[Rfam]
RNA: Bacterial large subunit ribosomal RNA, nucleotides 854 to 1286
Organism: Alkaliphilus sp. B6464
RNA sequence: CUCGCCGAAAUAGCUUUAGGGCUAGCCUCGAGGUUAAGAGAUACGGAGGUAGAGCACUGAAUGGUCUAGGGGCCUUCACCGGUUACCAAAACCUAUCAAACUCCGAAUGCCGUUAUCUUUUACUCGGGAGUCAGACUGCGAGUGAUAAGAUCCGUAGUCAAGAGGGAAAGAGCCCAGACCAUCAGCUAAGGUCCCAAAGUAUACGUUAAGUGGAAAAGGAUGUGGAGUUGCAUAGACAACCAGGAUGUUGGCUUAGAAGCAGCCAUUCAUUCAAAGAGUGCGUAAUAGCUCACUGGUCGAGUGAUUCUGCGCCGAAAAUGUCCGGGGCUCAAACGUAUCACCGAAGCUAUGGAUCCGUAAGGAUGGUAGGCGAGCGUUCUAUAUAGGUUGAAGCUGUACCGGAAGGAGCAGUGGACUGUAUAGAAGUGAGAAU
Numbered sequence: 001c002u003c004g005c006c007g008a009a010a011u012a013g014c015u016u017u018a019g020g021g022c023u024a025g026c027c028u029c030g031a032g033g034u035u036a037a038g039a040g041a042u043a044c045g046g047a048g049g050u051a052g053a054g055c056a057c058u059g060a061a062u063g064g065u066c067u068a069g070g071g072g073c074c075u076u077c078a079c080c081g082g083u084u085a086c087c088a089a090a091a092c093c094u095a096u097c098a099a100a101c102u103c104c105g106a107a108u109g110c111c112g113u114u115a116u117c118u119u120u121u122a123c124u125c126g127g128g129a130g131u132c133a134g135a136c137u138g139c140g141a142g143u144g145a146u147a148a149g150a151u152c153c154g155u156a157g158u159c160a161a162g163a164g165g166g167a168a169a170g171a172g173c174c175c176a177g178a179c180c181a182u183c184a185g186c187u188a189a190g191g192u193c194c195c196a197a198a199g200u201a202u203a204c205g206u207u208a209a210g211u212g213g214a215a216a217a218g219g220a221u222g223u224g225g226a227g228u229u230g231c232a233u234a235g236a237c238a239a240c241c242a243g244g245a246u247g248u249u250g251g252c253u254u255a256g257a258a259g260c261a262g263c264c265a266u267u268c269a270u271u272c273a274a275a276g277a278g279u280g281c282g283u284a285a286u287a288g289c290u291c292a293c294u295g296g297u298c299g300a301g302u303g304a305u306u307c308u309g310c311g312c313c314g315a316a317a318a319u320g321u322c323c324g325g326g327g328c329u330c331a332a333a334c335g336u337a338u339c340a341c342c343g344a345a346g347c348u349a350u351g352g353a354u355c356c357g358u359a360a361g362g363a364u365g366g367u368a369g370g371c372g373a374g375c376g377u378u379c380u381a382u383a384u385a386g387g388u389u390g391a392a393g394c395u396g397u398a399c400c401g402g403a404a405g406g407a408g409c410a411g412u413g414g415a416c417u418g419u420a421u422a423g424a425a426g427u428g429a430g431a432a433u
Base pairs, nucleotide, nucleotide: 001374002373003372004371005370006369011024012023013022014021015020026130027128028127029126030125031124032123036121038118040116043113044112045111046110052104053102054101058098059097060096063093064092065091069087070086071084072083073082074081134159135158136157137156138155139154140153142151143150164175165174166173179352180351181350182349184348185347186346190342191341192340199339201338202337203336204335205334206333218313219312222310223309224308225307226306227305228304229303230302231301239297240296241295242294243293245270246269247268250264251263252262271275276291280289281288353364354363355362356361375428377425378424379423380422381421382420383419384418385417386416393412394411395410396409397408399406400405